[Rfam]
RNA sequence: UGCGUCGUCAUUGGGGAGUAGCCGAUUUCUGAUAUUUUUUAAGCAGAAAUGCUCGUAUCAACAUACUCGUUUUAAUAAAAAACGUGGUGCGGGCGGCCAGCGGGCAGGCGAGACCAUAGACAUGUCGGCUCAUCAUAGGGUUGGGGAUGAGCUACGUGUAUAUGGAGAAGUACCCAGCCGAGGCU
Dot-bracket structure: .........................((((((............)))))).((((((((((.......(((((.......)))))))))))))))....(((.................................................................................)))
RNA: Manganese Mn2+ riboswitch aptamer (yybP-ykoY)
Organism: Affinibrenneria salicis